[Rfam]
RNA: Caenorhabditis snoRNA ceN104
RNA sequence: AUGCAAUUGUCAAAACGGCACUUUCAUUUUUGAACCAACGUUUGAAUAAAGAAAGUUGUCCAGUUUAAAGCAAAAGUUUUAGCUUUGAACGAUAGUACAGUUGCUAUAAAAACUUAGCUCGAGAUGCGUGUGCUGUUUUGCUUCAAAAUGCGAUUCGGUUCCUAUUCUCCUCGGGACAAUU
Dot-bracket structure: ..((((((......(((((...................................)))))...(((.(((((..........))))).)))........)))))).............((((((..(.....((((..((((........))))..)))).......)..))))))......